This 112-nucleotide RNA sequence from Vulcanibacillus modesticaldus belongs to the Rfam family "PyrR binding site". About the family: This family represents the PyrR binding site and terminator structure. This RNA structure is found upstream of a variety of genes involved in pyrimidine biosynthesis and transport. Rfam links the family to the GO terms pyrimidine nucleobase biosynthetic process and pyrimidine nucleobase transport. The organism belongs to Vulcanibacillus, within Bacteria. The base pairs follow the family's consensus structure, which is taken from published work.

RNA sequence: CCACCCUUUAAUUCAGUCCAGAGAGGCUGGCAAGGAGUACGGUUAAAGAGAACAGAAUACUCUUCUCUUUUUACCAAAAACCUCUUACUGCCAGUAAAGAGGUUUUUUGUUG
Numbered sequence: 001c002c003a004c005c006c007u008u009u010a011a012u013u014c015a016g017u018c019c020a021g022a023g024a025g026g027c028u029g030g031c032a033a034g035g036a037g038u039a040c041g042g043u044u045a046a047a048g049a050g051a052a053c054a055g056a057a058u059a060c061u062c063u064u065c066u067c068u069u070u071u072u073a074c075c076a077a078a079a080a081c082c083u084c085u086u087a088c089u090g091c092c093a094g095u096a097a098a099g100a101g102g103u104u105u106u107u108u109g110u111u112g
Stems, first nucleotide, its partner, number of pairs: 005035004013030006045070008054061002076107011089094001